[Rfam]
The record is a 298-nucleotide sequence from Dimorphilus gyrociliatus, which matches "Metazoan signal recognition particle RNA" in Rfam. The match comes from Rfam's covariance-model search (239 bits). The organism belongs to Dimorphilus, within Eukaryota. The family has 91 seed sequences and 383,523 matches in Rfam 15.1.

RNA sequence: GCUGGGAGUGUGGCGUACUCCUGUAAUCCGUGCGACAUCGGAGGCCGGAGUGCGGAACGAUUUGAGAUCGGGGUUCCUAGCAGGCAGUGUUCUAUGUCGAUCAGACGUCCGAACUAAGCUCAGCAUCGGCAUGGAGUGAUUGGCGGAGGCCAGUUACCCCAGGUCGUCUAAGGAGGGAGGAAUCGAUCGAGGCCGGAAACGGAGCAGAUAAAACUCCCCGUGUUGAACAGUAGUCGGAUCGCGACUGUGAAUAGGCACUGUCUGUUAGCCCGGUUAAUAUAGUCGGACCUCAGUCCGU
Numbered sequence: 001g002c003u004g005g006g007a008g009u010g011u012g013g014c015g016u017a018c019u020c021c022u023g024u025a026a027u028c029c030g031u032g033c034g035a036c037a038u039c040g041g042a043g044g045c046c047g048g049a050g051u052g053c054g055g056a057a058c059g060a061u062u063u064g065a066g067a068u069c070g071g072g073g074u075u076c077c078u079a080g081c082a083g084g085c086a087g088u089g090u091u092c093u094a095u096g097u098c099g100a101u102c103a104g105a106c107g108u109c110c111g112a113a114c115u116a117a118g119c120u121c122a123g124c125a126u127c128g129g130c131a132u133g134g135a136g137u138g139a140u141u142g143g144c145g146g147a148g149g150c151c152a153g154u155u156a157c158c159c160c161a162g163g164u165c166g167u168c169u170a171a172g173g174a175g176g177g178a179g180g181a182a183u184c185g186a187u188c189g190a191g192g193c194c195g196g197a198a199a200c201g202g203a204g205c206a207g208a209u210a211a212a213a214c215u216c217c218c219c220g221u222g223u224u225g226a227a228c229a230g231u232a233g234u235c236g237g238a239u240c241g242c243g244a245c246u247g248u249g250a251a252u253a254g255g256c257a258c259u260g261u262c263u264g265u266u267a268g269c270c271c272g273g274u275u276a277a278u279a280u281a282g283u284c285g286g287a288c289c290u291c292a293g294u295c296c297g298u
Stems, first nucleotide, its partner, number of pairs: 001045003004022006027042003047296003051292002054289002058285005066275007077268013091255005097249001102247003106243003109237002113234004118228001120226007127166004132161003136157009167173002175218005186209003193202003